Rfam assigns this 80-nucleotide sequence from Ochotona princeps to the family "Small nucleolar RNA SNORD60". The family's RNA type in Rfam is C/D-box small nucleolar RNA. Rfam's curators put it in the seed alignment.

RNA sequence: AGCCUGUGAUGAGUCGCUCUUUCUGACACCUCGUAUGACAGCUGCUCCUGCAGCCUGAUUACGCCGCGAAGCUGAGGCUU
Numbered sequence: 001a002g003c004c005u006g007u008g009a010u011g012a013g014u015c016g017c018u019c020u021u022u023c024u025g026a027c028a029c030c031u032c033g034u035a036u037g038a039c040a041g042c043u044g045c046u047c048c049u050g051c052a053g054c055c056u057g058a059u060u061a062c063g064c065c066g067c068g069a070a071g072c073u074g075a076g077g078c079u080u
Stems, first nucleotide, its partner, number of pairs: 001079004041054005
The base pairs follow the family's consensus structure, which was predicted with PFOLD. Gene Ontology terms of the family: nucleolus and RNA processing. NCBI's taxonomy places the organism under Eukaryota, Teleostomi, Eutheria, Euarchontoglires, Ochotona.